[Rfam]
RNA sequence: UGGUCACACAGGGCUUAACCGAGAGGACAAUGGCAUGUAUAGGUGUAAUGCGGGGAUUUUGGGGUGUCCGCAGUUAGAGUCCUCUCAGG
Numbered sequence: 001u002g003g004u005c006a007c008a009c010a011g012g013g014c015u016u017a018a019c020c021g022a023g024a025g026g027a028c029a030a031u032g033g034c035a036u037g038u039a040u041a042g043g044u045g046u047a048a049u050g051c052g053g054g055g056a057u058u059u060u061g062g063g064g065u066g067u068c069c070g071c072a073g074u075u076a077g078a079g080u081c082c083u084c085u086c087a088g089g
Stems, first nucleotide, its partner, number of pairs: 001008001021086008040076003044072002050067003
This 89-nucleotide sequence from Callipepla squamata belongs to the Rfam family "Retrovirus direct repeat 1 (dr1)". On this family, see Aschoff et al., J Virol 1999: "Point mutations in the avian sarcoma/leukosis virus 3' untranslated region result in a packaging defect". From the family's description: This family represents the direct repeat 1 (dr1) element commonly found in the 3' UTR of Avian sarcoma, Rous sarcoma and Avian leukosis viruses (Alpharetroviruses and Avian type C retroviruses). dr1 is required for efficient viral replication and is thought to be involved in genomic RNA packaging although this may not be its only role. Rfam 15.1 lists 106 matches to the family in 14 species. NCBI's taxonomy places the organism under Eukaryota, Amniota, Sauropsida, Odontophoridae, Callipepla.